About this RNA:
Rfam assigns this 148-nucleotide RNA sequence from a Plautia stali symbiont to the family "Leucine operon leader". Rfam links the family to the GO term leucine biosynthetic process. Rfam's curators write: At least 6 amino acid operons are known to be regulated by attenuation. In each a leader sequence of 150-200 bp is found upstream of the first gene in the operon. A reference for the family is Kolter and Yanofsky (1982), "Attenuation in amino acid biosynthetic operons", Annu Rev Genet. Rfam classes the family as a cis-regulatory leader. Lineage of the source: Bacteria > Pseudomonadota > Gammaproteobacteria > Enterobacterales > Enterobacteriaceae.

RNA sequence: ACGAGGUUUGAUUAAUGUCACGUUCUUUUCUUCUACUCGGUCUACUACUUAACGCAUCCAGUUUGCGCGGUAGACUCGUAGGCGAAAUCAACAACUGAUUCGAACCUGCUGAAAGUUAAAAAACCCGCGCCACUGCGCGGGUUUUUUA
Number, nucleotide and partner (000 for none) at each position: 001a000002c000003g000004a107005g000006g105007u104008u103009u102010g101011a000012u000013u098014a000015a096016u093017g092018u091019c000020a000021c000022g000023u000024u000025c000026u000027u000028u000029u085030c084031u000032u082033c081034u080035a079036c078037u000038c000039g000040g000041u000042c000043u000044a000045c073046u072047a071048c070049u069050u000051a000052a000053c067054g066055c065056a064057u000058c000059c000060a000061g000062u000063u000064u056065g055066c054067g053068c000069g049070g048071u047072a046073g045074a000075c000076u000077c000078g036079u035080a034081g033082g032083c000084g030085a029086a000087a000088u000089c000090a000091a018092c017093a016094a000095c000096u015097g000098a013099u000100u000101c010102g009103a008104a007105c006106c000107u004108g000109c000110u000111g000112a000113a000114a000115g000116u000117u000118a000119a000120a145121a144122a143123a142124c141125c140126c139127g138128c137129g136130c135131c000132a000133c000134u000135g130136c129137g128138c127139g126140g125141g124142u123143u122144u121145u120146u000147u000148a000